[Rfam]
The family of this 172-nucleotide sequence from Natranaeroarchaeum sulfidigenes is "Sense overlapping transcript RNA 0042 (sot)".

RNA sequence: AGAUAACUCCGAGUCCUCAUGGAGAGGAUAGGAGUAACGGCUGUGUGGCACAGCCAUCGACAUACUUGUUCGACCGCGAGAGCGGGAUGUUUCGCACGAGAGAGCAAGUCGUGUCGUAGACCGGCAAAUAUCCCACCUGCGGUACGGGAAGCCUCGCCGUUUACGGCGAGGA
Numbered sequence: 001a002g003a004u005a006a007c008u009c010c011g012a013g014u015c016c017u018c019a020u021g022g023a024g025a026g027g028a029u030a031g032g033a034g035u036a037a038c039g040g041c042u043g044u045g046u047g048g049c050a051c052a053g054c055c056a057u058c059g060a061c062a063u064a065c066u067u068g069u070u071c072g073a074c075c076g077c078g079a080g081a082g083c084g085g086g087a088u089g090u091u092u093c094g095c096a097c098g099a100g101a102g103a104g105c106a107a108g109u110c111g112u113g114u115c116g117u118a119g120a121c122c123g124g125c126a127a128a129u130a131u132c133c134c135a136c137c138u139g140c141g142g143u144a145c146g147g148g149a150a151g152c153c154u155c156g157c158c159g160u161u162u163a164c165g166g167c168g169a170g171g172a
Base pairs, nucleotide, nucleotide: 004037007034008033009032010031013029014028015027016026017025018024039055040054041053042052043051058116059115060114061113062112063111065108066107067106068105069104070103071102084097086095131149132148133147134146136142137141152171153170154169155168156167157166158165159164
Annotation:
Rfam 15.1 lists 196 matches to the family in 82 species. The base pairs follow the family's consensus structure, which was predicted with RNAfold. The source organism's lineage runs through Archaea, Methanobacteriati, Methanobacteriota, Halobacteria and Natranaeroarchaeum. A reference for the family is Gomes-Filho et al. (2015), "Sense overlapping transcripts in IS1341-type transposase genes are functional non-coding RNAs in archaea", RNA Biol. It is annotated as a small RNA.